The family of this 137-nucleotide sequence from Sus scrofa is "Small nucleolar RNA SNORA46". The match comes from Rfam's covariance-model search (135 bits). Rfam 15.1 lists 582 matches to the family in 490 species. The family's RNA type in Rfam is H/ACA-box small nucleolar RNA. Lineage of the source: Eukaryota > Amniota > Eutheria > Artiodactyla > Sus. The family's consensus secondary structure was predicted with RNAfold. ACA46 is a member of the H/ACA class of snoRNA that guide the sites of modification of uridines to pseudouridines.

[Rfam]
RNA sequence: AGCACUAUAUUUAAACCUGGAUAGAAAUUUUCCCUAUCCUUGGUUACGCUGUAGUGCAAAAGAAAUCCUGGCUUCUUUCUGUCGCACAGCUGACUUUGUGCCAUUCUGCUGUUGCUGUAUGGAGCUAAGGAACAUAA
Numbered sequence: 001a002g003c004a005c006u007a008u009a010u011u012u013a014a015a016c017c018u019g020g021a022u023a024g025a026a027a028u029u030u031u032c033c034c035u036a037u038c039c040u041u042g043g044u045u046a047c048g049c050u051g052u053a054g055u056g057c058a059a060a061a062g063a064a065a066u067c068c069u070g071g072c073u074u075c076u077u078u079c080u081g082u083c084g085c086a087c088a089g090c091u092g093a094c095u096u097u098g099u100g101c102c103a104u105u106c107u108g109c110u111g112u113u114g115c116u117g118u119a120u121g122g123a124g125c126u127a128a129g130g131a132a133c134a135u136a137a
Stems, first nucleotide, its partner, number of pairs: 002057008014045004019039006066131004070126006080119002084115003087111004092106002
Dot-bracket structure: .((((((((....((((.((((((.........))))))..))))....))))))))........((((((((((....((..(((((((.((...........)).)))).)))..)).)))))).))))......